[Rfam]
RNA sequence: AUAAAUAUAUGGAAGUAGAACAUAUCUGAUAUUUUCUCAAAGUUUAUUUCGUUUUAACCCCAGCUUGCUUAGCUUGUAGAAUUUCUUUAUAAAAUUCUCUUUGCUGGGGCCCCAAACCCCAGCUUGCUUAGCUUGUAGAAUUUCUUUAUGAAUUUCUCUUUGCUGGGGCCCUGACUAGAUUUGAAAAUACUUGAUUCAAGUGCUUUUUUAAACCAGAUAGCUACUGCUAAAAUGAUAAAU
Numbered sequence: 001a002u003a004a005a006u007a008u009a010u011g012g013a014a015g016u017a018g019a020a021c022a023u024a025u026c027u028g029a030u031a032u033u034u035u036c037u038c039a040a041a042g043u044u045u046a047u048u049u050c051g052u053u054u055u056a057a058c059c060c061c062a063g064c065u066u067g068c069u070u071a072g073c074u075u076g077u078a079g080a081a082u083u084u085c086u087u088u089a090u091a092a093a094a095u096u097c098u099c100u101u102u103g104c105u106g107g108g109g110c111c112c113c114a115a116a117c118c119c120c121a122g123c124u125u126g127c128u129u130a131g132c133u134u135g136u137a138g139a140a141u142u143u144c145u146u147u148a149u150g151a152a153u154u155u156c157u158c159u160u161u162g163c164u165g166g167g168g169c170c171c172u173g174a175c176u177a178g179a180u181u182u183g184a185a186a187a188u189a190c191u192u193g194a195u196u197c198a199a200g201u202g203c204u205u206u207u208u209u210a211a212a213c214c215a216g217a218u219a220g221c222u223a224c225u226g227c228u229a230a231a232a233u234g235a236u237a238a239a240u
Stems, first nucleotide, its partner, number of pairs: 001006001011061002015058002018055003024049001027046003031043005063136002067132003071128003078098007103123007137157004142152003159234001161232001164229003168225001172219002175216002178214001180212002183209005189201004
The family of this 240-nucleotide sequence from Staphylococcus haemolyticus is "Staphylococcus sRNA 35 (srn_0335)". Taxonomically the source falls in Staphylococcus haemolyticus (Bacteria, Bacillota, Bacilli, Staphylococcaceae). A search with the family's covariance model found it, with a score of 151 bits. The family's consensus secondary structure was predicted with RNAfold. For this family Rfam cites "Staphylococcus aureus Transcriptome Architecture: From Laboratory to Infection-Mimicking Conditions" (Mader et al., PLoS Genet, 2016). By type it is a small RNA.